[Rfam]
RNA sequence: GCAGAGUGAGGUAGUAGAUUGUAUAGUUUUUAGGGUAGUAAUUUUAUCCUUUUCCGGAGAUAACUAUACAAUCUAUUGCCUUCCCUGA
Numbered sequence: 001g002c003a004g005a006g007u008g009a010g011g012u013a014g015u016a017g018a019u020u021g022u023a024u025a026g027u028u029u030u031u032a033g034g035g036u037a038g039u040a041a042u043u044u045u046a047u048c049c050u051u052u053u054c055c056g057g058a059g060a061u062a063a064c065u066a067u068a069c070a071a072u073c074u075a076u077u078g079c080c081u082u083c084c085c086u087g088a
Stems, first nucleotide, its partner, number of pairs: 002087003006083001008082020032050006052059002
A member of the RNA family "let-7 microRNA precursor family" from Ornithorhynchus anatinus, 88 nucleotides long. The literature on the family includes a 2001 paper in Nat Rev Genet by Rougvie, "Control of developmental timing in animals". The organism belongs to Ornithorhynchus, within Eukaryota. It scores 75 bits against the family's covariance model. From the family's description: This family represents the microRNAs (miRNA) let-7 and mir-98. let-7 was identified from a study of developmental timing in C. elegans, and was later shown to be part of a much larger class of non-coding RNAs termed miRNAs.